[Rfam]
RNA sequence: GCGGAUGGCCGGAUGACCGCGGGGGCCGCAAGGCCCGCGAGGAAAGUCCGGACUCCAUGAAGCAACGGUGCCGGGUAACGCCCGGCCGGGGCAACCCGAGGGAAAGCGCCACAGAGAACAGACCGCCCGCGGUUCGCCGCUGGCAAGGGUGAAACGGUGGGGUAAGAGCCCACCGCGGGACUGGCAACAGGACCGGCUUGGCAAGCCCCACCGGGAGCAAUGCCGAAUAGGGGCCUCGCGCCUUCCGCUUCGGCGGAGGCAGGGACGCUUCAGCCCGGAGGCCCGGGUUGGCAGCUUGAGCCCGGAGGUAACUCCGGGCCUAGAGGAAUGGUCAUCCAGGGGGUUCGCCCCCGGACAAAAUCCGGCUUACAGGCCAUCCGCGCAU
Numbered sequence: 001g002c003g004g005a006u007g008g009c010c011g012g013a014u015g016a017c018c019g020c021g022g023g024g025g026c027c028g029c030a031a032g033g034c035c036c037g038c039g040a041g042g043a044a045a046g047u048c049c050g051g052a053c054u055c056c057a058u059g060a061a062g063c064a065a066c067g068g069u070g071c072c073g074g075g076u077a078a079c080g081c082c083c084g085g086c087c088g089g090g091g092c093a094a095c096c097c098g099a100g101g102g103a104a105a106g107c108g109c110c111a112c113a114g115a116g117a118a119c120a121g122a123c124c125g126c127c128c129g130c131g132g133u134u135c136g137c138c139g140c141u142g143g144c145a146a147g148g149g150u151g152a153a154a155c156g157g158u159g160g161g162g163u164a165a166g167a168g169c170c171c172a173c174c175g176c177g178g179g180a181c182u183g184g185c186a187a188c189a190g191g192a193c194c195g196g197c198u199u200g201g202c203a204a205g206c207c208c209c210a211c212c213g214g215g216a217g218c219a220a221u222g223c224c225g226a227a228u229a230g231g232g233g234c235c236u237c238g239c240g241c242c243u244u245c246c247g248c249u250u251c252g253g254c255g256g257a258g259g260c261a262g263g264g265a266c267g268c269u270u271c272a273g274c275c276c277g278g279a280g281g282c283c284c285g286g287g288u289u290g291g292c293a294g295c296u297u298g299a300g301c302c303c304g305g306a307g308g309u310a311a312c313u314c315c316g317g318g319c320c321u322a323g324a325g326g327a328a329u330g331g332u333c334a335u336c337c338a339g340g341g342g343g344u345u346c347g348c349c350c351c352c353g354g355a356c357a358a359a360a361u362c363c364g365g366c367u368u369a370c371a372g373g374c375c376a377u378c379c380g381c382g383c384a385u
Base pairs, nucleotide, nucleotide: 001381002380003379004378005377006376007375008374009373010372011370012336013335014334015333016332017331018330020039021038023036024035025034026033027032044368045367046366048365049364050363051362052361053217054216055215056214062270066213067212068211069210070209071085072084073083074082075081086100087098088097089096090095101208102207106206107205108202109201110200123148124147125144126143127142129140130139131138132137156174157173158172159171160170161169175197176195177194178193181190182189183188221293222292223291224290231284232283233282234281235280236279262276263275264274300319301318302317303316304315305314306313307312
Rfam assigns this 385-nucleotide RNA sequence from Haematobacter massiliensis to the family "Bacterial RNase P class A". It is annotated as a ribozyme. The match comes from Rfam's covariance-model search (298 bits). Pairs were carried over by alignment from the consensus structure, which is taken from published work.